[Rfam]
RNA: SL2 RNA
Organism: Caenorhabditis bovis
RNA sequence: GGUUUUAACCCAGUUACUCAAGGUAAUUUGAGUUUCGACCUUUCUUUGAAAGCGUUGAAAAACCGUAAUUUUUGGGCAAGCUUCUUCGGGGUAUCCGUUGAAGCAAU
Numbered sequence: 001g002g003u004u005u006u007a008a009c010c011c012a013g014u015u016a017c018u019c020a021a022g023g024u025a026a027u028u029u030g031a032g033u034u035u036c037g038a039c040c041u042u043u044c045u046u047u048g049a050a051a052g053c054g055u056u057g058a059a060a061a062a063c064c065g066u067a068a069u070u071u072u073u074g075g076g077c078a079a080g081c082u083u084c085u086u087c088g089g090g091g092u093a094u095c096c097g098u099u100g101a102a103g104c105a106a107u
Base pairs, nucleotide, nucleotide: 007034008033009030013027014026015025016024017023036057037056038055039054040052041051042050043049044048082105084103085102086101087100088099089098090096091095